[Rfam]
RNA sequence: CACCCGGGACGGCAAGCGUCUGAAAGGGGGGCGCGGCUGGAGAUUGGAACAGGGCCGGCCAUGCACACCCCGGGGAAGCGCGGGGCCGGAUGUCGGGGGACAUCCGGCCCCUUUUUU
Numbered sequence: 001c002a003c004c005c006g007g008g009a010c011g012g013c014a015a016g017c018g019u020c021u022g023a024a025a026g027g028g029g030g031g032c033g034c035g036g037c038u039g040g041a042g043a044u045u046g047g048a049a050c051a052g053g054g055c056c057g058g059c060c061a062u063g064c065a066c067a068c069c070c071c072g073g074g075g076a077a078g079c080g081c082g083g084g085g086c087c088g089g090a091u092g093u094c095g096g097g098g099g100a101c102a103u104c105c106g107g108c109c110c111c112u113u114u115u116u117u
Base pairs, nucleotide, nucleotide: 003074004073005072006071007070008069011066012064013063017033018032019031020030021029035060036059037058038057039056040055045052082111083110084109085108086107087106088105089104090103091102092101093100094099